RNA sequence: CCCUCCGAAGUUUCCCUCAGGAUAGCUGGAACUUAUACAGUUUUAUCAGGUAAAGCUAAUGAUUAGAGGUUCCGGAGCUGAAACAGCUUUGACCUAUUCUCAAACUUUAAAUAGGUAAGAAGUCUCGUGUUACUUAACUGAACCGAGACAUCGAAUGGAAGUUCUUAGUGGGCCAUUUUUGGUAAGCAGAACUGGCGAUGCGGGAUGAACCGGACGUUGAGUUACGGUGCCAAACUAUUCGCUCAUCUAGAUCCCUCAAAAGGUGUUGGUUCAUUUAGACAGCAGGACGGUGGUCAUGGAAGUCGAAAUCCGCUAAGGAGUGUGUAACAACUCACCUGCCGAAUGAACUAGCCCUGAAAAUGGAUGGCGCUGAAGCGAGUGACCUAUACUCAACCAUAAGUGCAAAUGCGAAGCAUUUAUGAGUAGGAGGGCGUGGAGCUUGUGACGCAGUCUGGGACGUAAGUCCGGAUGAAACAGGCUCUAGUGCAGAU
Numbered sequence: 001c002c003c004u005c006c007g008a009a010g011u012u013u014c015c016c017u018c019a020g021g022a023u024a025g026c027u028g029g030a031a032c033u034u035a036u037a038c039a040g041u042u043u044u045a046u047c048a049g050g051u052a053a054a055g056c057u058a059a060u061g062a063u064u065a066g067a068g069g070u071u072c073c074g075g076a077g078c079u080g081a082a083a084c085a086g087c088u089u090u091g092a093c094c095u096a097u098u099c100u101c102a103a104a105c106u107u108u109a110a111a112u113a114g115g116u117a118a119g120a121a122g123u124c125u126c127g128u129g130u131u132a133c134u135u136a137a138c139u140g141a142a143c144c145g146a147g148a149c150a151u152c153g154a155a156u157g158g159a160a161g162u163u164c165u166u167a168g169u170g171g172g173c174c175a176u177u178u179u180u181g182g183u184a185a186g187c188a189g190a191a192c193u194g195g196c197g198a199u200g201c202g203g204g205a206u207g208a209a210c211c212g213g214a215c216g217u218u219g220a221g222u223u224a225c226g227g228u229g230c231c232a233a234a235c236u237a238u239u240c241g242c243u244c245a246u247c248u249a250g251a252u253c254c255c256u257c258a259a260a261a262g263g264u265g266u267u268g269g270u271u272c273a274u275u276u277a278g279a280c281a282g283c284a285g286g287a288c289g290g291u292g293g294u295c296a297u298g299g300a301a302g303u304c305g306a307a308a309u310c311c312g313c314u315a316a317g318g319a320g321u322g323u324g325u326a327a328c329a330a331c332u333c334a335c336c337u338g339c340c341g342a343a344u345g346a347a348c349u350a351g352c353c354c355u356g357a358a359a360a361u362g363g364a365u366g367g368c369g370c371u372g373a374a375g376c377g378a379g380u381g382a383c384c385u386a387u388a389c390u391c392a393a394c395c396a397u398a399a400g401u402g403c404a405a406a407u408g409c410g411a412a413g414c415a416u417u418u419a420u421g422a423g424u425a426g427g428a429g430g431g432c433g434u435g436g437a438g439c440u441u442g443u444g445a446c447g448c449a450g451u452c453u454g455g456g457a458c459g460u461a462a463g464u465c466c467g468g469a470u471g472a473a474a475c476a477g478g479c480u481c482u483a484g485u486g487c488a489g490a491u
Base pairs, nucleotide, nucleotide: 001431002430003429004428005427006426011024013022014021015020028165029164030163031162032161033160041120042119043118044117045116046115047114053108054106055105060102061101062100065097067095068094069093073091074090075089076088077087079085122149123148124147125146126145127144129143130142131141172196173195174194175193177191178190179189180188181187201212202211203210216394217393218392219391220390222388226384227383228382235381237380240377241376242375261355262354263353265352266351267350268349269348270347271346272345273344274343282339283338284337285336286335288312289311290310294306295305313317318333322331323330395421396420397419398418399417400416401415402414403413432486434483435482436481437480438479439478440477441476442475443474450470451469456465457464458463